[Rfam]
RNA sequence: UAAAAUUAAUAUUCAUUUAUCCAUAUAAUUCUGGAAAUAUGGUUCAGAAGUUUCUACCGAAAGACCGUAAAUCUUUCGACUAUGGGUAAAUUCAACGAUUAG
Numbered sequence: 001u002a003a004a005a006u007u008a009a010u011a012u013u014c015a016u017u018u019a020u021c022c023a024u025a026u027a028a029u030u031c032u033g034g035a036a037a038u039a040u041g042g043u044u045c046a047g048a049a050g051u052u053u054c055u056a057c058c059g060a061a062a063g064a065c066c067g068u069a070a071a072u073c074u075u076u077c078g079a080c081u082a083u084g085g086g087u088a089a090a091u092u093c094a095a096c097g098a099u100u101a102g
Base pairs, nucleotide, nucleotide: 018088019087020086021085022084023083024082025081029049030048031047032046033045034044035043058078059077060076061075062074063073064072
RNA: Purine riboswitch aptamer
Organism: Fonticella tunisiensis